[Rfam]
RNA sequence: ACUGAUCCGAUGACAGGAAGAGUAGACAAGCAGCGCCUAGACAGAGAGGAAGCACCGUGGCUGAAAGUGCUUCUCUAGUGCCGCGCUUGUUGAAAGACAUCCUGUAGGACCGCUAUUGAAAGAGGGGCUCGAGUAAAUAGCGGCGUGACCCGCGUUAAGGGUAAAGUGGGUAAAUGGCCCAAAGCCAUUUACCAAUGAGGGUGGUACCACGGGUGUAAACAACUCGUCCCUGAU
Numbered sequence: 001a002c003u004g005a006u007c008c009g010a011u012g013a014c015a016g017g018a019a020g021a022g023u024a025g026a027c028a029a030g031c032a033g034c035g036c037c038u039a040g041a042c043a044g045a046g047a048g049g050a051a052g053c054a055c056c057g058u059g060g061c062u063g064a065a066a067g068u069g070c071u072u073c074u075c076u077a078g079u080g081c082c083g084c085g086c087u088u089g090u091u092g093a094a095a096g097a098c099a100u101c102c103u104g105u106a107g108g109a110c111c112g113c114u115a116u117u118g119a120a121a122g123a124g125g126g127g128c129u130c131g132a133g134u135a136a137a138u139a140g141c142g143g144c145g146u147g148a149c150c151c152g153c154g155u156u157a158a159g160g161g162u163a164a165a166g167u168g169g170g171u172a173a174a175u176g177g178c179c180c181a182a183a184g185c186c187a188u189u190u191a192c193c194a195a196u197g198a199g200g201g202u203g204g205u206a207c208c209a210c211g212g213g214u215g216u217a218a219a220c221a222a223c224u225c226g227u228c229c230c231u232g233a234u
Base pairs, nucleotide, nucleotide: 007108008107015103016102017101018100025091026090027089028088029087030086037078038077039076048074049073050072051071052070053069054068055067111142112141113140114139115138116137117136144154145153146152169193170192171191172190173189174188175187176186177185178184198231199230200229201228209227210226211225212224213223
RNA: T-box leader